The family of this 101-nucleotide sequence from Paenibacillus sp. KS1 is "Purine riboswitch aptamer". Taxonomically the source falls in Paenibacillus (Bacteria, Bacillati, Bacilli, Paenibacillaceae). Its family is annotated with purine nucleobase biosynthetic process in the Gene Ontology. The match comes from Rfam's covariance-model search (69 bits). The base pairs follow the family's consensus structure, which is taken from published work.
RNA sequence: AACCUAAUAACGCAACUUUUUUGUAUAAUCUUGGGAAUUGGCCUGAGAGUUUCUACGAGAUCACCGUAAAUGAUCUGGCUACGAAGAGGAACGGCUUUCCG
Numbered sequence: 001a002a003c004c005u006a007a008u009a010a011c012g013c014a015a016c017u018u019u020u021u022u023g024u025a026u027a028a029u030c031u032u033g034g035g036a037a038u039u040g041g042c043c044u045g046a047g048a049g050u051u052u053c054u055a056c057g058a059g060a061u062c063a064c065c066g067u068a069a070a071u072g073a074u075c076u077g078g079c080u081a082c083g084a085a086g087a088g089g090a091a092c093g094g095c096u097u098u099c100c101g
Stems, first nucleotide, its partner, number of pairs: 018087008029048007058076006